[Rfam]
RNA: mir-3689 microRNA precursor family
RNA sequence: GGGGGGUGUGACCCCACGCUUGCUGGGAGGUGUGAUCCUGCGUUUCCUGGAAGGUGUGAGCCCAUGCCUGUU
Numbered sequence: 001g002g003g004g005g006g007u008g009u010g011a012c013c014c015c016a017c018g019c020u021u022g023c024u025g026g027g028a029g030g031u032g033u034g035a036u037c038c039u040g041c042g043u044u045u046c047c048u049g050g051a052a053g054g055u056g057u058g059a060g061c062c063c064a065u066g067c068c069u070g071u072u
Stems, first nucleotide, its partner, number of pairs: 001071001003069003015058004020053002023050007031042004